Rfam assigns this 77-nucleotide RNA from Hevea brasiliensis to the family "mir-1 microRNA precursor family". The base pairs follow the family's consensus structure, which was predicted with RNAalifold. A reference for the family is Lee and Ambros (2001), "An extensive class of small RNAs in Caenorhabditis elegans", Science. NCBI's taxonomy places the organism under Eukaryota, Euphyllophyta, Magnoliopsida, Gunneridae, Hevea. Rfam's curators write: This family represents the microRNA (miRNA) mir-1 family. miRNAs are transcribed as ~70nt precursors (modelled here) and subsequently processed by the Dicer enzyme to give a ~22nt product. In this case the mature sequence comes from the 3' arm of the precursor. The extents of the hairpin precursors are not generally known and are estimated based on hairpin prediction. Gene Ontology terms of the family: miRNA-mediated post-transcriptional gene silencing and RISC complex.
[Rfam]
RNA sequence: AAAGUAUUCUCAUACUUUCUCACUUCUCAUAACCAUUUCUCAUGGUUAUGAGAAGUGAGAAAGUAUGAGAAUACUUU
Numbered sequence: 001a002a003a004g005u006a007u008u009c010u011c012a013u014a015c016u017u018u019c020u021c022a023c024u025u026c027u028c029a030u031a032a033c034c035a036u037u038u039c040u041c042a043u044g045g046u047u048a049u050g051a052g053a054a055g056u057g058a059g060a061a062a063g064u065a066u067g068a069g070a071a072u073a074c075u076u077u
Stems, first nucleotide, its partner, number of pairs: 007071019027051005